Overview
The record is a 95-nucleotide sequence from Sphingobacterium paucimobilis, which matches "TPP riboswitch aptamer (THI element)" in Rfam. The match comes from Rfam's covariance-model search (75 bits). Pairs were carried over by alignment from the consensus structure, which is taken from published work.
RNA sequence: CCCUGGCUUUAGGGGUGUCCAUUGUUAUGGACUGAGAUAGACCCUUUGAACCUGACACGGUUGGUACCGUCGUAGGGAAAAGCAAGAACCUAUCC
Dot-bracket structure: .....(((((((((.((((((......)))))......)..)))).....((((..((((......))))..))))..)))))............
Numbered sequence: 001c002c003c004u005g006g007c008u009u010u011a012g013g014g015g016u017g018u019c020c021a022u023u024g025u026u027a028u029g030g031a032c033u034g035a036g037a038u039a040g041a042c043c044c045u046u047u048g049a050a051c052c053u054g055a056c057a058c059g060g061u062u063g064g065u066a067c068c069g070u071c072g073u074a075g076g077g078a079a080a081a082g083c084a085a086g087a088a089c090c091u092a093u094c095c
Stems, first nucleotide, its partner, number of pairs: 006083005011045004016039001017032005051076004057070004